[Rfam]
RNA sequence: GGUUGAUGAUGAUAAAUUAAAAGGCUUGUUUCUCAAGACAUUCGCAGUGGCCGCCUGAGAGUUUCCCCUUUCGCCGGGGUUGAGACUAUUGCUGCUUUUCUCCUUCCUUGGAUGUCUGAAACC
Numbered sequence: 001g002g003u004u005g006a007u008g009a010u011g012a013u014a015a016a017u018u019a020a021a022a023g024g025c026u027u028g029u030u031u032c033u034c035a036a037g038a039c040a041u042u043c044g045c046a047g048u049g050g051c052c053g054c055c056u057g058a059g060a061g062u063u064u065c066c067c068c069u070u071u072c073g074c075c076g077g078g079g080u081u082g083a084g085a086c087u088a089u090u091g092c093u094g095c096u097u098u099u100c101u102c103c104u105u106c107c108u109u110g111g112a113u114g115u116c117u118g119a120a121a122c123c
Base pairs, nucleotide, nucleotide: 001123002122003121004120060087061086062085063084064083065082
RNA: Small nucleolar RNA SNORD14
Organism: Chenopodium quinoa